[Rfam]
RNA: RNase MRP
RNA sequence: UCCUCGCUCAAAGAAUCGCAUUCGAAGCUCACAAACAGAGAUAUUCCUCGGAAUGUCUCAGCUAGCAAUAGCUACUCAUGCUUUGGGAGAAAGUCCCCGGACAGCCUUCUUUCAGAAGGAUUGCGGAAACGCGCCGCCACAGAAGCACUGCGGCCUUCUCCUCUACCAAUUCCUCGUGCCUUCCUCCAUCCUUUCACCGUUUGCACUGCCUUCUUAUUGAUCUUUAGGACUGAUGUUCUGAACCGAGAAGACCACAUGGACGAAGAUAUGAGUCCGAGCUUCUCGUGUGAUGUUUGUUGGGACUGGGAUGUGAGAUUGCGGAAGGUGUCUGGACUGUUCUUGGCGUGGCGGUGAUGUUCUGGUCAGUGGAGAGUUUUCGUCGAGAUCGAUAGUUAUGCGAUUGCCUUCUCAUGCCAUGCAAGUGGUACGAGGGGUAACUCGAUGGGGCUUAUUCUUGAUGCGAGG
Number, nucleotide and partner (000 for none) at each position: 001u000002c465003c464004u463005c462006g461007c460008u458009c457010a456011a455012a000013g000014a402015a401016u400017c399018g398019c397020a000021u000022u087023c085024g084025a083026a082027g081028c080029u000030c000031a000032c000033a000034a000035a000036c000037a000038g059039a058040g057041a056042u055043a054044u053045u052046c051047c000048u000049c000050g000051g046052a045053a044054u043055g042056u041057c040058u039059c038060a000061g000062c000063u000064a000065g000066c000067a000068a000069u000070a000071g000072c000073u000074a000075c000076u000077c000078a000079u000080g028081c027082u026083u025084u024085g023086g000087g022088a000089g000090a000091a450092a449093g448094u000095c447096c446097c445098c444099g000100g000101a000102c000103a000104g000105c000106c000107u000108u000109c000110u000111u000112u000113c000114a000115g000116a000117a000118g000119g000120a000121u000122u133123g132124c131125g130126g000127a000128a000129a000130c125131g124132c123133g122134c000135c000136g000137c000138c000139a000140c000141a000142g000143a000144a000145g000146c000147a000148c000149u000150g000151c000152g000153g000154c000155c000156u000157u000158c000159u000160c000161c000162u000163c000164u000165a000166c000167c000168a000169a000170u000171u000172c000173c000174u000175c000176g000177u000178g000179c000180c000181u000182u000183c000184c000185u000186c000187c000188a000189u000190c000191c000192u000193u000194u000195c000196a000197c000198c000199g000200u000201u000202u000203g000204c000205a000206c000207u000208g000209c000210c000211u000212u000213c000214u000215u000216a374217u373218u372219g000220a000221u000222c000223u369224u368225u000226a000227g000228g364229a363230c362231u361232g000233a000234u000235g000236u000237u000238c000239u000240g359241a358242a357243c356244c000245g000246a000247g000248a000249a000250g000251a000252c000253c000254a000255c000256a000257u000258g000259g000260a000261c000262g000263a000264a000265g000266a000267u000268a000269u000270g000271a000272g000273u000274c000275c000276g000277a000278g000279c000280u000281u000282c000283u000284c000285g000286u000287g000288u000289g000290a000291u000292g000293u000294u000295u000296g000297u000298u000299g000300g000301g000302a000303c000304u000305g000306g000307g000308a000309u000310g000311u000312g000313a000314g000315a000316u000317u000318g000319c000320g000321g000322a000323a000324g000325g000326u000327g000328u000329c000330u000331g000332g000333a000334c000335u000336g000337u000338u000339c000340u000341u000342g352343g000344c350345g349346u000347g000348g000349c345350g344351g000352u342353g000354a000355u000356g243357u242358u241359c240360u000361g231362g230363u229364c228365a000366g000367u000368g224369g223370a000371g000372a218373g217374u216375u000376u000377u000378c000379g000380u000381c000382g000383a000384g000385a000386u000387c000388g000389a000390u000391a000392g000393u000394u000395a000396u000397g019398c018399g017400a016401u015402u014403g000404c434405c433406u432407u431408c000409u429410c000411a000412u000413g000414c000415c000416a000417u000418g000419c000420a000421a000422g000423u000424g000425g000426u000427a000428c000429g409430a000431g407432g406433g405434g404435u000436a000437a000438c000439u000440c000441g000442a000443u000444g098445g097446g096447g095448c093449u092450u091451a000452u000453u000454c000455u011456u010457g009458a008459u000460g007461c006462g005463a004464g003465g002